Shown here is an 89-nucleotide sequence from Derxia gummosa, a member of the family "Manganese Mn2+ riboswitch aptamer (yybP-ykoY)". The pairing is the family consensus, mapped onto this sequence. The match comes from Rfam's covariance-model search (51 bits). About the family: This RNA was originally discovered in E. coli during a large scale screen and was named SraF. The family was later found to exist upstream of related families of protein genes in many bacteria, including the the yybP and ykoK genes in B. subtilis.
RNA sequence: CCCUUGGGGAGUAGCCGCCCGCCGGUCAUCGGCGGGGGAUGCGUCAACACACUUGCCCGCGCAUCGGGCAUGGCGCAUCCGGCAGGGCC
Numbered sequence: 001c002c003c004u005u006g007g008g009g010a011g012u013a014g015c016c017g018c019c020c021g022c023c024g025g026u027c028a029u030c031g032g033c034g035g036g037g038g039a040u041g042c043g044u045c046a047a048c049a050c051a052c053u054u055g056c057c058c059g060c061g062c063a064u065c066g067g068g069c070a071u072g073g074c075g076c077a078u079c080c081g082g083c084a085g086g087g088c089c
Stems, first nucleotide, its partner, number of pairs: 019035003037080010054070005
Dot-bracket structure: ..................(((...........))).((((((((((.......(((((.......))))))))))))))).........